[Rfam]
RNA sequence: CCCGCCGGUGACCCGGCCGGCCAACCAAAGAACCCGGGCAGAGAACCACACCCACCUACCGCCCCCACCGUCGCCAACUCCUCACCCCAUCGGGUGACUUGGGCGUGGGGGCGUCCGGAAUGCGGUUACUCUCGGUGCGGAUCCAGCACCACGAACGCUGCGAUCUGCGACCACAAUCCGAAAGAGAACGGCCCCCGGCGGGAUGGCAGUCCCGAACCCGAGGGCCUCAUCACAGGAAGCAAGCCCUUCCCA
Numbered sequence: 001c002c003c004g005c006c007g008g009u010g011a012c013c014c015g016g017c018c019g020g021c022c023a024a025c026c027a028a029a030g031a032a033c034c035c036g037g038g039c040a041g042a043g044a045a046c047c048a049c050a051c052c053c054a055c056c057u058a059c060c061g062c063c064c065c066c067a068c069c070g071u072c073g074c075c076a077a078c079u080c081c082u083c084a085c086c087c088c089a090u091c092g093g094g095u096g097a098c099u100u101g102g103g104c105g106u107g108g109g110g111g112c113g114u115c116c117g118g119a120a121u122g123c124g125g126u127u128a129c130u131c132u133c134g135g136u137g138c139g140g141a142u143c144c145a146g147c148a149c150c151a152c153g154a155a156c157g158c159u160g161c162g163a164u165c166u167g168c169g170a171c172c173a174c175a176a177u178c179c180g181a182a183a184g185a186g187a188a189c190g191g192c193c194c195c196c197g198g199c200g201g202g203a204u205g206g207c208a209g210u211c212c213c214g215a216a217c218c219c220g221a222g223g224g225c226c227u228c229a230u231c232a233c234a235g236g237a238a239g240c241a242a243g244c245c246c247u248u249c250c251c252a
Stems, first nucleotide, its partner, number of pairs: 009232002016069001019066001082097006190226005196220003200213004235250005
Background:
This 252-nucleotide RNA sequence from Streptomyces piniterrae belongs to the Rfam family "Streptomyces sRNA 4677". Lineage of the source: Bacteria > Actinomycetota > Kitasatosporales > Streptomycetaceae > Streptomyces. For this family Rfam cites "Complex intra-operonic dynamics mediated by a small RNA in Streptomyces coelicolor" (Hindra et al., PLoS One, 2014). The match comes from Rfam's covariance-model search (41 bits). The family has 12 seed sequences and 563 matches in Rfam 15.1. Rfam describes the family as follows. Located in the intergenic region between anti-sigma factor SCO4677 gene and a putative regulatory protein gene SCO4676. scr4677 expression requires the SCO4677 activity and scr4677 sRNA itself seem to affect the levels of the SCO4676-associated transcripts.